[Rfam]
Rfam assigns this 444-nucleotide part of an RNA to the family "Eukaryotic large subunit ribosomal RNA". The family's consensus secondary structure is taken from published work. The match comes from Rfam's covariance-model search (2865 bits).
RNA sequence: UAAAAAGUAUACACACAUAGACAUGUCAUCGUCAUAGUAAUCCGACUCAGUACGAGAGGAACAGUCGAUUCAGAUAAUUGGUAUUUUCCCUUGGCCGAAAGGCCAGUGGGGAGAAGCUACCAUCUGUAGGAUUAUGGCUGAACGCCUCUAAGCCAGAAUCCGUGCUAGCGUAACGAUGAUACGUGCCCCUGCCGACUCUAGGCGAGCAACGAUAGGUCACCUCUUUGCCGAGGUGACCGUGCGCCAUAGAAUCUGGGUAGCGGAAUGUGCAAGCGGCGAGUCAUCUCCACUUGUUACUCCCAGCGCCCGAAUCGCAAUUUCAGACUUUGCGGCAGGGACCGGAUCCUUUGCAGACGACUUAUAUAAAGAACGGGGUAUUGUAAGGGGCAGAGUAGACUUGUUUCUACGAUCCUCUGAGAUUAAGCCUUUGUUCUCUUGAUUCGU
Numbered sequence: 001u002a003a004a005a006a007g008u009a010u011a012c013a014c015a016c017a018u019a020g021a022c023a024u025g026u027c028a029u030c031g032u033c034a035u036a037g038u039a040a041u042c043c044g045a046c047u048c049a050g051u052a053c054g055a056g057a058g059g060a061a062c063a064g065u066c067g068a069u070u071c072a073g074a075u076a077a078u079u080g081g082u083a084u085u086u087u088c089c090c091u092u093g094g095c096c097g098a099a100a101g102g103c104c105a106g107u108g109g110g111g112a113g114a115a116g117c118u119a120c121c122a123u124c125u126g127u128a129g130g131a132u133u134a135u136g137g138c139u140g141a142a143c144g145c146c147u148c149u150a151a152g153c154c155a156g157a158a159u160c161c162g163u164g165c166u167a168g169c170g171u172a173a174c175g176a177u178g179a180u181a182c183g184u185g186c187c188c189c190u191g192c193c194g195a196c197u198c199u200a201g202g203c204g205a206g207c208a209a210c211g212a213u214a215g216g217u218c219a220c221c222u223c224u225u226u227g228c229c230g231a232g233g234u235g236a237c238c239g240u241g242c243g244c245c246a247u248a249g250a251a252u253c254u255g256g257g258u259a260g261c262g263g264a265a266u267g268u269g270c271a272a273g274c275g276g277c278g279a280g281u282c283a284u285c286u287c288c289a290c291u292u293g294u295u296a297c298u299c300c301c302a303g304c305g306c307c308c309g310a311a312u313c314g315c316a317a318u319u320u321c322a323g324a325c326u327u328u329g330c331g332g333c334a335g336g337g338a339c340c341g342g343a344u345c346c347u348u349u350g351c352a353g354a355c356g357a358c359u360u361a362u363a364u365a366a367a368g369a370a371c372g373g374g375g376u377a378u379u380g381u382a383a384g385g386g387g388c389a390g391a392g393u394a395g396a397c398u399u400g401u402u403u404c405u406a407c408g409a410u411c412c413u414c415u416g417a418g419a420u421u422a423a424g425c426c427u428u429u430g431u432u433c434u435c436u437u438g439a440u441u442c443g444u
Base pairs, nucleotide, nucleotide: 025180026179027178028177029176030175031174032173035167036166037165038164040070043067044066045065046064047063071126072125073124074123075122079119080118081117086113087112088111089110090109091106092105093104094103095102096101129161130160135155136154137153138152139151187337188336189335190334191333192332193331341442342441343440344439345438347361350358367434368433369432370431371430372429373427374426375425377420378419384414385413386412387411389410392407393406394405395404396403